[Rfam]
RNA sequence: UGCAGCCAUGUCAAAUUCGGUGCCUGCCCCAUCCAUGGCAGACACUGGCCCAAAAGGCUGCCAUAGAAACACUGUGACUCAUGGGCCCUGAUCCCUCUGCUGGGCCUCAGGGAUAAAUUUGGUUACAGACACCA
Numbered sequence: 001u002g003c004a005g006c007c008a009u010g011u012c013a014a015a016u017u018c019g020g021u022g023c024c025u026g027c028c029c030c031a032u033c034c035a036u037g038g039c040a041g042a043c044a045c046u047g048g049c050c051c052a053a054a055a056g057g058c059u060g061c062c063a064u065a066g067a068a069a070c071a072c073u074g075u076g077a078c079u080c081a082u083g084g085g086c087c088c089u090g091a092u093c094c095c096u097c098u099g100c101u102g103g104g105c106c107u108c109a110g111g112g113a114u115a116a117a118u119u120u121g122g123u124u125a126c127a128g129a130c131a132c133c134a
Stems, first nucleotide, its partner, number of pairs: 002061004018047005024041005074126006086112005
This 134-nucleotide RNA from Myotis myotis belongs to the Rfam family "Small nucleolar RNA SNORA5".
About the family: ACA5 is a member of the H/ACA class of snoRNA that guide the sites of modification of uridines to pseudouridines.
It scores 135 bits against the family's covariance model.
Its Rfam clan is "SNORA5 clan".
The base pairs follow the family's consensus structure, which was predicted with RNAfold.
Lineage of the source: Eukaryota > Metazoa > Bilateria > Teleostomi > Myotis.